Background
This 191-nucleotide RNA from Enterococcus thailandicus belongs to the Rfam family "Enterococcus sRNA 2410". Taxonomically the source falls in Enterococcus (Bacteria, Bacillota, Lactobacillales, Enterococcaceae). Rfam's curators write: Produced as 2 transcripts on Northern blot. Expressed in mid, late exponential and early stationary phases of growth. Expression remained uniform under daptomycin exposure. The base pairs follow the family's consensus structure, which was predicted with RNAfold.
[Rfam]
RNA sequence: UUAGCUACUUUAGAUAGGUUUGUAUUCAUCAUGAUGGAUACAAACGUUAAACAACUUGUUUGUAUCUAUGAUGGCUAAAGAACUUUGUAUUACGCAAAAAGCCACGUAGACAUUACGCUAAGUGGCUAAGCAAAGAAAAUACAAAGUAUUUCUGGUACCAUACUUUUCUAUUUAUUUUCUCGCUUUUUCGA
Numbered sequence: 001u002u003a004g005c006u007a008c009u010u011u012a013g014a015u016a017g018g019u020u021u022g023u024a025u026u027c028a029u030c031a032u033g034a035u036g037g038a039u040a041c042a043a044a045c046g047u048u049a050a051a052c053a054a055c056u057u058g059u060u061u062g063u064a065u066c067u068a069u070g071a072u073g074g075c076u077a078a079a080g081a082a083c084u085u086u087g088u089a090u091u092a093c094g095c096a097a098a099a100a101g102c103c104a105c106g107u108a109g110a111c112a113u114u115a116c117g118c119u120a121a122g123u124g125g126c127u128a129a130g131c132a133a134a135g136a137a138a139a140u141a142c143a144a145a146g147u148a149u150u151u152c153u154g155g156u157a158c159c160a161u162a163c164u165u166u167u168c169u170a171u172u173u174a175u176u177u178u179c180u181c182g183c184u185u186u187u188u189c190g191a
Stems, first nucleotide, its partner, number of pairs: 001078007011068006018045012048062005082147010100127006107120003148175002154172004

The family's RNA type in Rfam is small RNA.